[Rfam]
RNA sequence: ACGUUUUAAAAAGCGCCAGAACUAGACAACGAGCGGAUACAAUUGUCUAGUUGACGAGGAGAAGGUUUAUCGAGAAUUCGGCGGAUACCUUCCGGCUGCCACACACAGUCGACGUCUUUUUCUUAAAACAUCAGAGGUGACUCGGUGCACAAAGGGAAAAGAAAUGUGAGAA
Dot-bracket structure: ...................((((((((.(.............).))))))))........(((((....((((....))))......)))))((((((.......))))))...(((((((.......((((.(((....)))))))........)))))))..........
Shown here is a 172-nucleotide RNA from Heyndrickxia sporothermodurans, a member of the family "glmS glucosamine-6-phosphate activated ribozyme aptamer". A search with the family's covariance model found it, with a score of 119 bits. Its family is annotated with regulation of gene expression and catalytic activity in the Gene Ontology. Rfam describes the family as follows. This entry contains a glucosamine-6-phosphate activated ribozyme that is found in the mRNA for GlmS. GlmS is an enzyme that uses fructose-6-phosphate and glutamine to generate glucosamine-6-phosphate.